[Rfam]
RNA sequence: GCAUCCGGACGACCGGAUGACUGACCAACACGCAGGACGACCUGC
Numbered sequence: 001g002c003a004u005c006c007g008g009a010c011g012a013c014c015g016g017a018u019g020a021c022u023g024a025c026c027a028a029c030a031c032g033c034a035g036g037a038c039g040a041c042c043u044g045c
Base pairs, nucleotide, nucleotide: 002019003018004017005016006015007014008013032045033044034043035042036041